[Rfam]
RNA sequence: GCUGCAAAUUCAAGACCAGGACAGAAGUGCUCAUGGCAUGGCCCUGUCAGGUUCCAAUGAAUCGGUGAAUUCUGCU
Numbered sequence: 001g002c003u004g005c006a007a008a009u010u011c012a013a014g015a016c017c018a019g020g021a022c023a024g025a026a027g028u029g030c031u032c033a034u035g036g037c038a039u040g041g042c043c044c045u046g047u048c049a050g051g052u053u054c055c056a057a058u059g060a061a062u063c064g065g066u067g068a069a070u071u072c073u074g075c076u
Stems, first nucleotide, its partner, number of pairs: 014043001016041002020076001022074005027039003048065001050063005
Description:
The family of this 76-nucleotide sequence from Crocodylus porosus is "Mammalian CPEB3 ribozyme". The literature on the family includes a 2006 paper in Science by Salehi-Ashtiani et al., "A genomewide search for ribozymes reveals an HDV-like sequence in the human CPEB3 gene". From the family's description: The mammalian CPEB3 ribozyme is a self cleaving RNA located in the second intron of the CPEB3 gene which belongs to a family of genes regulating messenger RNA polyadenylation. The match comes from Rfam's covariance-model search (37 bits).